[Rfam]
RNA sequence: AUUUUCCAAACGCUGAGUUUCCGACUGGAAAACGGGGGAACCGAUCGGCUGUCUGCCGAUUCAACAUUGGGGUGAAUCCUGGAAUUGCUUUCGAGCAAAACCGGGUAGGGCGACUCUCACGUCCGAAUCCGUCAGCUAACCUCGUAAGCGUGAAGAGAGAGGUAAC
Numbered sequence: 001a002u003u004u005u006c007c008a009a010a011c012g013c014u015g016a017g018u019u020u021c022c023g024a025c026u027g028g029a030a031a032a033c034g035g036g037g038g039a040a041c042c043g044a045u046c047g048g049c050u051g052u053c054u055g056c057c058g059a060u061u062c063a064a065c066a067u068u069g070g071g072g073u074g075a076a077u078c079c080u081g082g083a084a085u086u087g088c089u090u091u092c093g094a095g096c097a098a099a100a101c102c103g104g105g106u107a108g109g110g111c112g113a114c115u116c117u118c119a120c121g122u123c124c125g126a127a128u129c130c131g132u133c134a135g136c137u138a139a140c141c142u143c144g145u146a147a148g149c150g151u152g153a154a155g156a157g158a159g160a161g162g163u164a165a166c
Stems, first nucleotide, its partner, number of pairs: 011150004018031003032145006042069004070130003078105004108124004
c-di-AMP riboswitch aptamer (ydaO/yuaA leader): a 166-nucleotide RNA sequence from Paenibacillus thalictri. The source organism's lineage runs through Bacteria, Bacillota, Bacilli, Paenibacillaceae and Paenibacillus.